[Rfam]
RNA sequence: CUGUAAAGGACGAGUAUACUCGGAUUCCCCUUCAGAGCAUCUAAAUGGAUGAUGGAAAUUCGAGUUUCUGAUGCG
Numbered sequence: 001c002u003g004u005a006a007a008g009g010a011c012g013a014g015u016a017u018a019c020u021c022g023g024a025u026u027c028c029c030c031u032u033c034a035g036a037g038c039a040u041c042u043a044a045a046u047g048g049a050u051g052a053u054g055g056a057a058a059u060u061c062g063a064g065u066u067u068c069u070g071a072u073g074c075g
Stems, first nucleotide, its partner, number of pairs: 002075004
RNA: Small nucleolar RNA snoR60